[Rfam]
RNA: eL15-Euryarchaeota ribosomal protein leader
Nucleotides: 070
Base pairs, nucleotide, nucleotide: 001036002035003034004033038066039065040064046060047059048058049057050056
Number, partner (000 for none) and nucleotide at each position: 001036c002035u003034c004033g005000c006000c007000g008000c009000c010000g011000c012000g013000c014000c015000g016000g017000g018000g019000g020000a021000c022000c023000c024000g025000a026000c027000g028000c029000g030000g031000g032000a033004c034003g035002a036001g037000a038066c039065g040064a041000a042000a043000u044000g045000u046060g047059g048058c049057c050056g051000c052000u053000u054000c055000g056050c057049g058048g059047c060046u061000g062000a063000a064040u065039c066038g067000c068000a069000a070000g